[Rfam]
RNA sequence: UUGAGACUUUCAAAAUCUCUAUUAAUAUUAUCGACAUUUGGUUUUUUUAAUAGACCUCGGAUUGGUACCCGAGGUUUUU
Number, nucleotide and partner (000 for none) at each position: 001u000002u000003g000004a000005g000006a000007c000008u000009u000010u000011c000012a000013a000014a000015a000016u000017c000018u000019c000020u000021a000022u000023u000024a000025a000026u000027a000028u000029u000030a000031u000032c000033g000034a000035c000036a000037u000038u000039u000040g000041g000042u000043u000044u000045u000046u000047u000048u000049a000050a000051u000052a000053g000054a075055c074056c073057u072058c071059g070060g069061a000062u000063u000064g000065g000066u000067a000068c000069c060070c059071g058072a057073g056074g055075u054076u000077u000078u000079u000
Rfam assigns this 79-nucleotide RNA sequence from Plectonema radiosum to the family "Photosynthesis regulatory RNA1". Rfam links the family to the GO terms regulation of translation and regulation of photosynthesis. Rfam describes the family as follows. Formerly known as Syr1 discovered in Synechocystis sp PCC 6803, is a regulatory factor controlling photosynthetic functions. Pairs were carried over by alignment from the consensus structure, which was predicted with CMfinder. It is annotated as a small RNA. Taxonomically the source falls in Plectonema radiosum (Bacteria, Cyanobacteriota, Oscillatoriophycideae, Microcoleaceae). On this family, see Georg et al., Plant Cell 2014: "The small regulatory RNA SyR1/PsrR1 controls photosynthetic functions in cyanobacteria".